RNA sequence: CUUCACCGAACCCAGCCACAACGGCCGCUCACGAUCCUGCCCGUACGUCGCCAGAAUCGCCUGCGCCUC
Numbered sequence: 001c002u003u004c005a006c007c008g009a010a011c012c013c014a015g016c017c018a019c020a021a022c023g024g025c026c027g028c029u030c031a032c033g034a035u036c037c038u039g040c041c042c043g044u045a046c047g048u049c050g051c052c053a054g055a056a057u058c059g060c061c062u063g064c065g066c067c068u069c
Stems, first nucleotide, its partner, number of pairs: 015025003028065001030063001032059002037054003041050001043048001
Dot-bracket structure: ..............(((.....)))..(.(.((...(((.(.(....).).)))...))...).)....
The family of this 69-nucleotide sequence from Streptomyces sp. DSM 15324 is "ASpks TB sRNA". Pairs were carried over by alignment from the consensus structure, which is taken from published work. The family has 77 seed sequences and 9,052 matches in Rfam 15.1.